[Rfam]
RNA sequence: GGUUAACGCGAGGAGACAGACAUGGGACUCACGCAAUCCUUGAAUGUUCUGUUGGUCAGUGCAGCGUUUGCUUUCGUCUUAUCCAUGCUCUUCAUCUGAGCCUGGAUGACGGACGCGUAACGUUGAUAGUGCCUAAACUCCCCUGAUCAAUCCGCCAAUGAAAAAGCGCAUGUCCCGCCCGACAUGCGCUUU
Number, nucleotide and partner (000 for none) at each position: 001g000002g000003u000004u000005a000006a000007c000008g000009c000010g000011a000012g000013g000014a000015g048016a047017c046018a045019g000020a000021c000022a000023u000024g040025g039026g038027a037028c000029u000030c000031a000032c000033g000034c000035a000036a000037u027038c026039c025040u024041u000042g000043a000044a000045u018046g017047u016048u015049c000050u000051g000052u000053u000054g000055g000056u000057c000058a000059g000060u000061g000062c000063a000064g000065c000066g000067u000068u000069u000070g000071c000072u000073u000074u000075c000076g000077u000078c000079u000080u000081a000082u000083c000084c000085a000086u000087g000088c000089u000090c000091u000092u000093c000094a000095u000096c000097u000098g000099a000100g000101c000102c000103u000104g000105g000106a000107u000108g000109a000110c000111g000112g000113a000114c000115g000116c000117g000118u000119a000120a000121c000122g000123u000124u000125g000126a000127u000128a000129g000130u000131g000132c000133c000134u000135a000136a000137a000138c000139u000140c000141c000142c000143c000144u000145g000146a000147u000148c000149a000150a000151u000152c000153c000154g000155c000156c000157a000158a000159u000160g000161a000162a000163a192164a191165a190166g189167c188168g187169c186170a185171u184172g183173u182174c181175c000176c000177g000178c000179c000180c000181g174182a173183c172184a171185u170186g169187c168188g167189c166190u165191u164192u163

Source information
Shown here is a 192-nucleotide sequence from Rhizobium sp. Kim5, a member of the family "Rhizobiales sRNA Atu_C9". For this family Rfam cites "Deep sequencing uncovers numerous small RNAs on all four replicons of the plant pathogen Agrobacterium tumefaciens" (Wilms et al., RNA Biol, 2012). The family's RNA type in Rfam is small RNA. The base pairs follow the family's consensus structure, which was predicted with WAR.